[Rfam]
RNA sequence: UCAUCGAUACCGCAAACCUGUCGAAAGGCAGCGACGCAAAGCUACAGGGCCUUCCUUACGAUGUAAGAUGGCAGCCAGUUGCCGAA
Numbered sequence: 001u002c003a004u005c006g007a008u009a010c011c012g013c014a015a016a017c018c019u020g021u022c023g024a025a026a027g028g029c030a031g032c033g034a035c036g037c038a039a040a041g042c043u044a045c046a047g048g049g050c051c052u053u054c055c056u057u058a059c060g061a062u063g064u065a066a067g068a069u070g071g072c073a074g075c076c077a078g079u080u081g082c083c084g085a086a
Stems, first nucleotide, its partner, number of pairs: 012037002018031005040080004047076002049072003056066004
A member of the RNA family "c-di-GMP-I riboswitch aptamer" from Xylanibacillus composti, 86 nucleotides long. Taxonomically the source falls in Xylanibacillus (Bacteria, Bacilli, Caryophanales, Paenibacillaceae). Its family is annotated with cyclic-di-GMP binding in the Gene Ontology.